The record is a 109-nucleotide RNA from Evansella caseinilytica, which matches "SAM riboswitch aptamer (S box leader)" in Rfam. Its family is annotated with regulation of gene expression in the Gene Ontology.
[Rfam]
RNA sequence: CUCUUAUCAAGAGAGGUUGAGGGAUCUGGCCCGAUGACACCUCGGCAACCAUUGAAUGAAAAUUCAACAGGUGCCAAAUCCAGCAGAACGCUGUUCUGAAAGAUGAGAG
Numbered sequence: 001c002u003c004u005u006a007u008c009a010a011g012a013g014a015g016g017u018u019g020a021g022g023g024a025u026c027u028g029g030c031c032c033g034a035u036g037a038c039a040c041c042u043c044g045g046c047a048a049c050c051a052u053u054g055a056a057u058g059a060a061a062a063u064u065c066a067a068c069a070g071g072u073g074c075c076a077a078a079u080c081c082a083g084c085a086g087a088a089c090g091c092u093g094u095u096c097u098g099a100a101a102g103a104u105g106a107g108a109g
Stems, first nucleotide, its partner, number of pairs: 001109008013043005021032003026083004044075004049071002052067004079101001084098006